[Rfam]
Rfam assigns this 87-nucleotide RNA from Triticum aestivum to the family "MIR1120/MIR1122 microRNA precursor family". The organism belongs to Triticum, within Eukaryota. For this family Rfam cites "Cloning and characterization of microRNAs from wheat (Triticum aestivum L.)" (Yao et al., Genome Biol, 2007).
RNA sequence: GUACUCCCUCCAUAAAGAAAUAUAAGAGCGUUUAGAUCACUAAAGUAAUGAUCUAAAUGCUCUUAUAUUUCUUUACAGAGGGAGUAG
Numbered sequence: 001g002u003a004c005u006c007c008c009u010c011c012a013u014a015a016a017g018a019a020a021u022a023u024a025a026g027a028g029c030g031u032u033u034a035g036a037u038c039a040c041u042a043a044a045g046u047a048a049u050g051a052u053c054u055a056a057a058u059g060c061u062c063u064u065a066u067a068u069u070u071c072u073u074u075a076c077a078g079a080g081g082g083a084g085u086a087g
Stems, first nucleotide, its partner, number of pairs: 003085003007081004013075005019069021041047001